[Rfam]
RNA sequence: UCGCAUAUAUAUGUAUAGACUUGGCUAAAUUCUCAAGAUAGUGCAGUCUAUUAGUGAUUAGUGCAAUAAAGGGAAAGCUGAAUUUAUCAGCGGCGGCCAGACAACCGCUGAGAUGAAUCCACAGAUAGGUUCUGACUUUGUUCCUGUCUACUAAUUUCAUCUCACAUUA
Numbered sequence: 001u002c003g004c005a006u007a008u009a010u011a012u013g014u015a016u017a018g019a020c021u022u023g024g025c026u027a028a029a030u031u032c033u034c035a036a037g038a039u040a041g042u043g044c045a046g047u048c049u050a051u052u053a054g055u056g057a058u059u060a061g062u063g064c065a066a067u068a069a070a071g072g073g074a075a076a077g078c079u080g081a082a083u084u085u086a087u088c089a090g091c092g093g094c095g096g097c098c099a100g101a102c103a104a105c106c107g108c109u110g111a112g113a114u115g116a117a118u119c120c121a122c123a124g125a126u127a128g129g130u131u132c133u134g135a136c137u138u139u140g141u142u143c144c145u146g147u148c149u150a151c152u153a154a155u156u157u158c159a160u161c162u163c164a165c166a167u168u169a
Base pairs, nucleotide, nucleotide: 003064004063005062006061010056011055015051016050017049018048019047020046021045024042025041026040027039110163111162112161113160114159115158116157117156128145129144
This 169-nucleotide RNA from Capsicum baccatum belongs to the Rfam family "small nucleolar RNA snoR143". Taxonomically the source falls in Capsicum (Eukaryota, Spermatophyta, Gunneridae, Solanales). The literature on the family includes a 2009 paper in Nucleic Acids Res by Chen and Wu, "Mining small RNA sequencing data: a new approach to identify small nucleolar RNAs in Arabidopsis". It scores 86 bits against the family's covariance model. Gene Ontology terms of the family: nucleolus and RNA processing. The family's consensus secondary structure was predicted with RNAalifold.